[Rfam]
RNA: 7SK RNA
RNA sequence: GGAUGCGAGGGCGAUCUGGCUGCGACAUCUGUCACCCCAUGGAUCACCAGGGUUGAUUUGGCUGAUGUGACUGGUGAGAGAGGUGUCCCCUUCCUCCCUCGCUGCUCCAUGUGUGUCCCUCCUGAAGCUGCGCGCUCAGUCAAAGAUGACCUUCCCUGAUAGAGACACACCAUUCAUCGCUCAAGGGUACAGGGAGGCUGUGCUCCCCUGCUACAACCUCCAAACAAUUGAUAUUUAAAAACUGUUUCUAAUUUCAGAGGCAGACAAAGUCCCCUCUCUCUCUCUCUCUCUCAAAAAAAAAGUUAAAAUCUGAUUU
Numbered sequence: 001g002g003a004u005g006c007g008a009g010g011g012c013g014a015u016c017u018g019g020c021u022g023c024g025a026c027a028u029c030u031g032u033c034a035c036c037c038c039a040u041g042g043a044u045c046a047c048c049a050g051g052g053u054u055g056a057u058u059u060g061g062c063u064g065a066u067g068u069g070a071c072u073g074g075u076g077a078g079a080g081a082g083g084u085g086u087c088c089c090c091u092u093c094c095u096c097c098c099u100c101g102c103u104g105c106u107c108c109a110u111g112u113g114u115g116u117c118c119c120u121c122c123u124g125a126a127g128c129u130g131c132g133c134g135c136u137c138a139g140u141c142a143a144a145g146a147u148g149a150c151c152u153u154c155c156c157u158g159a160u161a162g163a164g165a166c167a168c169a170c171c172a173u174u175c176a177u178c179g180c181u182c183a184a185g186g187g188u189a190c191a192g193g194g195a196g197g198c199u200g201u202g203c204u205c206c207c208c209u210g211c212u213a214c215a216a217c218c219u220c221c222a223a224a225c226a227a228u229u230g231a232u233a234u235u236u237a238a239a240a241a242c243u244g245u246u247u248c249u250a251a252u253u254u255c256a257g258a259g260g261c262a263g264a265c266a267a268a269g270u271c272c273c274c275u276c277u278c279u280c281u282c283u284c285u286c287u288c289u290c291u292c293a294a295a296a297a298a299a300a301a302g303u304u305a306a307a308a309u310c311u312g313a314u315u316u
Base pairs, nucleotide, nucleotide: 001108002107003106005102006101007100008099009098010097011096013093014092018090019089024087025086026085027084028083029082030081032079033078035074036073038069039068043066044065045064047061048060119164120163121162122139123138124137125136127135128134140159141158142157148154149153197270198269199268208263209262210261211260218259219258220257224254226252301315302314303313304312305311